[Rfam]
RNA sequence: GCCGCUUUAGCUCAGCUGGUAGAGCACCUCAUUCGUAAUGAGGGGGUCGGGGGUUCGAAUCCCUCAAGCGGCA
Numbered sequence: 001g002c003c004g005c006u007u008u009a010g011c012u013c014a015g016c017u018g019g020u021a022g023a024g025c026a027c028c029u030c031a032u033u034c035g036u037a038a039u040g041a042g043g044g045g046g047u048c049g050g051g052g053g054u055u056c057g058a059a060u061c062c063c064u065c066a067a068g069c070g071g072c073a
Base pairs, nucleotide, nucleotide: 001072002071003070004069005068006067007066010025011024012023013022027043028042029041030040031039049065050064051063052062053061
Background:
The family of this 73-nucleotide sequence from Azorhizobium caulinodans is "tRNA". A search with the family's covariance model found it, with a score of 73 bits. The family's consensus secondary structure is taken from published work. Transfer RNA (tRNA) molecules are approximately 80 nucleotides in length. Their secondary structure includes four short double-helical elements and three loops (D, anti-codon, and T loops). Further hydrogen bonds mediate the characteristic L-shaped molecular structure. tRNAs have two regions of fundamental functional importance: the anti-codon, which is responsible for specific mRNA codon recognition, and the 3' end, to which the tRNAs corresponding amino acid is attached (by aminoacyl-tRNA synthetases). tRNAs cope with the degeneracy of the genetic code in two manners: having more than one tRNA (with a specific anti-codon) for a particular amino acid; and 'wobble' base-pairing, i.e. permitting non-standard base-pairing at the 3rd anti-codon position. By type it is a transfer RNA.